Shown here is a 139-nucleotide RNA sequence from Piprites chloris, a member of the family "Small nucleolar RNA SNORA8". About the family: ACA8 is a member of the H/ACA class of snoRNA that guide the sites of modification of uridines to pseudouridines. The family's RNA type in Rfam is H/ACA-box small nucleolar RNA. Lineage of the source: Eukaryota > Metazoa > Chordata > Archelosauria > Piprites.

[Rfam]
RNA sequence: UGCUCUGUGUGGUAUUUCCACCCAGCAGCAUUCUCUUGAUAAGGUGUUCAACAAGCUGUGCUACAGCAGUGCAGUGUUUAGCAUCACUGCUUUUGAUUCUGCUGUGUCUGUUAAACCUGUUUUGGUUUUUUUUUUUUUU
Numbered sequence: 001u002g003c004u005c006u007g008u009g010u011g012g013u014a015u016u017u018c019c020a021c022c023c024a025g026c027a028g029c030a031u032u033c034u035c036u037u038g039a040u041a042a043g044g045u046g047u048u049c050a051a052c053a054a055g056c057u058g059u060g061c062u063a064c065a066g067c068a069g070u071g072c073a074g075u076g077u078u079u080a081g082c083a084u085c086a087c088u089g090c091u092u093u094u095g096a097u098u099c100u101g102c103u104g105u106g107u108c109u110g111u112u113a114a115a116c117c118u119g120u121u122u123u124g125g126u127u128u129u130u131u132u133u134u135u136u137u138u139u
Base pairs, nucleotide, nucleotide: 002061003060005058007056015054016053019046020045021044022043024040026038027037028036065127066126067125069123071120072119073118074117081107082106083105084104